The record is a 143-nucleotide RNA sequence from Leucobacter viscericola, which matches "FMN riboswitch aptamer (RFN element)" in Rfam. The match comes from Rfam's covariance-model search (80 bits). The family's consensus secondary structure is taken from published work.
RNA sequence: AGCGUGUUCCGGGGUCGGUGAGAAUCCGAACCGGCGGUCAAAGUCCGCGACCCUCGCUUCCGCGAGGUUGAACCGGUGAAACUCCGGUACCGACGGUGAUGGCUCGCUUGAGGCGGGUCUAGUCCGGAUGUGAGGAACGCAGG
Numbered sequence: 001a002g003c004g005u006g007u008u009c010c011g012g013g014g015u016c017g018g019u020g021a022g023a024a025u026c027c028g029a030a031c032c033g034g035c036g037g038u039c040a041a042a043g044u045c046c047g048c049g050a051c052c053c054u055c056g057c058u059u060c061c062g063c064g065a066g067g068u069u070g071a072a073c074c075g076g077u078g079a080a081a082c083u084c085c086g087g088u089a090c091c092g093a094c095g096g097u098g099a100u101g102g103c104u105c106g107c108u109u110g111a112g113g114c115g116g117g118u119c120u121a122g123u124c125c126g127g128a129u130g131u132g133a134g135g136a137a138c139g140c141a142g143g
Stems, first nucleotide, its partner, number of pairs: 004140007016028003032092002034048004043090002052067002072088005094126003